A member of the RNA family "mir-4889 microRNA precursor family" from Branchiostoma floridae, 84 nucleotides long. Rfam 15.1 lists 6 matches to the family in 3 species. Pairs were carried over by alignment from the consensus structure, which was predicted with RNAalifold. Lineage of the source: Eukaryota > Opisthokonta > Eumetazoa > Chordata > Branchiostoma. Its family is annotated with miRNA-mediated post-transcriptional gene silencing and RISC complex in the Gene Ontology.
[Rfam]
RNA sequence: UGAGCUUUUUAACCUUCCUAGCGCCACGAGUUGAUUGUAAAGUCUACAUAUAAUCGACCCUGGCACUGGGAAUUUUAAAGGUCU
Numbered sequence: 001u002g003a004g005c006u007u008u009u010u011a012a013c014c015u016u017c018c019u020a021g022c023g024c025c026a027c028g029a030g031u032u033g034a035u036u037g038u039a040a041a042g043u044c045u046a047c048a049u050a051u052a053a054u055c056g057a058c059c060c061u062g063g064c065a066c067u068g069g070g071a072a073u074u075u076u077a078a079a080g081g082u083c084u
Stems, first nucleotide, its partner, number of pairs: 003084002006081007015072004020067002023064004028060001030058008